[Rfam]
RNA sequence: CGGGUUGGCUGGGCGAUCGCGUCGACGCUCCGGCGUCGCCGAGGAAAGUCCGGGCUCCGCAGAGCAGGGUGGUGGGUAACGCCCACUCGGGGUGACCCGCAGGCCAGUGCCACAGAAAACAGACCGCCACGCGCCUCGGCGCGGGGUAAGGGUGAAACGGUGGUGUAAGAGACCACCAGCUCCCCGGGUGACCGGGGAGGCUAGGUAAACCCCACCUGGAGCAAGGCCAGACAGGAUGUGUUCGAGGGCUGCUCGCCCGAGCAUCCGGGUAGGCCGCUUGAGGCCACUGGCAACAGUGGUCCUAGAUGGAUGAUCGCUACGCCGCACCUGGCAACGGGCGCGACUGACAGAACCCGGCUCACAGGCCAACCCGUCCA
Numbered sequence: 001c002g003g004g005u006u007g008g009c010u011g012g013g014c015g016a017u018c019g020c021g022u023c024g025a026c027g028c029u030c031c032g033g034c035g036u037c038g039c040c041g042a043g044g045a046a047a048g049u050c051c052g053g054g055c056u057c058c059g060c061a062g063a064g065c066a067g068g069g070u071g072g073u074g075g076g077u078a079a080c081g082c083c084c085a086c087u088c089g090g091g092g093u094g095a096c097c098c099g100c101a102g103g104c105c106a107g108u109g110c111c112a113c114a115g116a117a118a119a120c121a122g123a124c125c126g127c128c129a130c131g132c133g134c135c136u137c138g139g140c141g142c143g144g145g146g147u148a149a150g151g152g153u154g155a156a157a158c159g160g161u162g163g164u165g166u167a168a169g170a171g172a173c174c175a176c177c178a179g180c181u182c183c184c185c186g187g188g189u190g191a192c193c194g195g196g197g198a199g200g201c202u203a204g205g206u207a208a209a210c211c212c213c214a215c216c217u218g219g220a221g222c223a224a225g226g227c228c229a230g231a232c233a234g235g236a237u238g239u240g241u242u243c244g245a246g247g248g249c250u251g252c253u254c255g256c257c258c259g260a261g262c263a264u265c266c267g268g269g270u271a272g273g274c275c276g277c278u279u280g281a282g283g284c285c286a287c288u289g290g291c292a293a294c295a296g297u298g299g300u301c302c303u304a305g306a307u308g309g310a311u312g313a314u315c316g317c318u319a320c321g322c323c324g325c326a327c328c329u330g331g332c333a334a335c336g337g338g339c340g341c342g343a344c345u346g347a348c349a350g351a352a353c354c355c356g357g358c359u360c361a362c363a364g365g366c367c368a369a370c371c372c373g374u375c376c377a
Stems, first nucleotide, its partner, number of pairs: 001373010011362001012318007020041002023038006047359002050357005055221004062254004067217005072086005087101001088099004102212002107210002109206003124151002126147003130143005159177006179201001180199008225275004234266006246258004282301008
RNA: Bacterial RNase P class A